[Rfam]
Nucleotides: 102
Base pairs, nucleotide, nucleotide: 012027013026014025015024016023038053039052040051041050042049056102057101058100059099060098062094063093064092065091066090067089068088072084073083074082075081076080
Number, partner (000 for none) and nucleotide at each position: 001000u002000a003000a004000g005000c006000u007000c008000c009000g010000c011000a012027c013026g014025g015024a016023a017000u018000g019000a020000u021000u022000u023016u024015u025014c026013u027012g028000a029000g030000c031000a032000c033000g034000u035000g036000g037000c038053c039052g040051u041050c042049a043000c044000a045000g046000g047000g048000c049042u050041g051040a052039c053038g054000u055000a056102a057101c058100a059099c060098c061000a062094g063093c064092u065091g066090c067089c068088a069000u070000u071000g072084u073083g074082g075081a076080u077000a078000g079000c080076a081075u082074c083073c084072a085000g086000g087000u088068u089067g090066g091065u092064a093063g094062c095000a096000c097000c098060g099059g100058u101057g102056u